RNA sequence: GAACUUAAGAGUUUGAUCCUGGCUCAGAUUGAACGCUGGCGGCAUGCUUUACACAUGCAAGUCGAACGGCAGCGCGGGCUUCGGCCUGGCGGCGAGUGGCGAACGGGUGAGUAAUGCAUCGGAACGUGCCCAGUCGUGGGGGAUAACACAUCGAAAGAUGUGCUAAUACCGCAUACGUCCUGAGGGAGAAAGCGGGGGAAUCUUCGGAUCCUCGCGCGAUUGGAGCGGCCGAUGUCAGAUUAGCUAGUAGGUGAGGUAAAGGCUCACCUAGGCGACGAUCUGUAGCGGGUCUGAGAGGAUGAUCCGCCACACUGGGACUGAGACACGGCCCAGACUCCUACGGGAGGCAGCAGUGGGGAAUUUUGGACAAUGGGGGCAACCCUGAUCCAGCCAUGCCGCGUGAGUGAAGAAGGCCUUCGGGUUGUAAAGCUCUUUCGGCCGGGAAGAAAUCGCAUUCUCUAACAUAGGAUGUGGAUGACGGUACCGGACUAAGAAGCACCGGCUAACUACGUGCCAGCAGCCGCGGUAAUACGUAGGGUGCGAGCGUUAAUCGGAAUUACUG
Dot-bracket structure: ........(((((.......))))).((((.((((((.((((((.((....(((.(((..(((..((.((.((.(((((....))))))).))..)))))......(((......(((((((..((...(((((((.(.((.....((((((....))))))......)).).....(((....)))....(((((((..........))))))).)))))))..)).)))))))(((....(((..((((((((.......)))))))))))......)))..((((((((....))))...))))))).(((((............))))).((((....))))...)))))).).....(.(((...(((((....))))).)))).)..))))))..((((......((((....)))).....))))...((.((((...(....(((((((.........))))))).....)....)))).)...)..(((((......(((((.....((....)).......)))))))))).))))))))))..........

Description: Shown here is a 562-nucleotide part of an RNA from Thauera linaloolentis, a member of the family "Bacterial small subunit ribosomal RNA". Rfam 15.1 lists 42,628 matches to the family in 10,626 species. Taxonomically the source falls in Thauera linaloolentis (Bacteria, Pseudomonadati, Betaproteobacteria, Thauera).